Shown here is a 95-nucleotide sequence from Apium graveolens, a member of the family "MIR396 microRNA precursor family". The match comes from Rfam's covariance-model search (82 bits). Its family is annotated with RISC complex and miRNA-mediated post-transcriptional gene silencing in the Gene Ontology. Taxonomically the source falls in Apium (Eukaryota, Streptophytina, Pentapetalae, Apioideae).
[Rfam]
RNA sequence: CUUUGUGUUCUUCCACGGCUUUCUUGAACUGCAUCAUCUCAGAUUUUCCUGAUUUAGAUGCUGCAGUUCAAUAAAGCUGUGGGAAGAUACAGGCG
Numbered sequence: 001c002u003u004u005g006u007g008u009u010c011u012u013c014c015a016c017g018g019c020u021u022u023c024u025u026g027a028a029c030u031g032c033a034u035c036a037u038c039u040c041a042g043a044u045u046u047u048c049c050u051g052a053u054u055u056a057g058a059u060g061c062u063g064c065a066g067u068u069c070a071a072u073a074a075a076g077c078u079g080u081g082g083g084a085a086g087a088u089a090c091a092g093g094c095g
Stems, first nucleotide, its partner, number of pairs: 003092005013082003017078006024071004029066005
Dot-bracket structure: ..(((((.....(((.((((((.((((.(((((............................))))).)))).)))))).))).....)))))...